Shown here is an 85-nucleotide RNA from Methanofollis formosanus, a member of the family "tRNA". The organism belongs to Methanofollis, within Archaea.
RNA sequence: GCGAGGGUUGCCGAGCCGGGUCAAAGGCGCUGGAUUUAGGGUCCAGUCUUGUAGAAGUUCGAGGGUUCGAAUCCCUCCCCUCGCA
Numbered sequence: 001g002c003g004a005g006g007g008u009u010g011c012c013g014a015g016c017c018g019g020g021u022c023a024a025a026g027g028c029g030c031u032g033g034a035u036u037u038a039g040g041g042u043c044c045a046g047u048c049u050u051g052u053a054g055a056a057g058u059u060c061g062a063g064g065g066u067u068c069g070a071a072u073c074c075c076u077c078c079c080c081u082c083g084c085a
Stems, first nucleotide, its partner, number of pairs: 001084007010028003030046005061077005